[Rfam]
RNA sequence: CUCUGUAAAGAUAAAAACACAGAGCAGAGCUCUCUGGUUGGUAGUCCAGAAGUACAUAAAGAUGUACUAGUAACCUUCCUCCUUGGUCGUCCCUUCUUUACAGUAACUUU
Numbered sequence: 001c002u003c004u005g006u007a008a009a010g011a012u013a014a015a016a017a018c019a020c021a022g023a024g025c026a027g028a029g030c031u032c033u034c035u036g037g038u039u040g041g042u043a044g045u046c047c048a049g050a051a052g053u054a055c056a057u058a059a060a061g062a063u064g065u066a067c068u069a070g071u072a073a074c075c076u077u078c079c080u081c082c083u084u085g086g087u088c089g090u091c092c093c094u095u096c097u098u099u100a101c102a103g104u105a106a107c108u109u110u
Stems, first nucleotide, its partner, number of pairs: 004102008033050005052067006078086002
The record is a 110-nucleotide RNA sequence from Streptococcus massiliensis, which matches "azaaromatic riboswitch aptamer (yjdF RNA)" in Rfam. NCBI's taxonomy places the organism under Bacteria, Bacillati, Bacilli, Streptococcaceae, Streptococcus. Pairs were carried over by alignment from the consensus structure, which is taken from published work.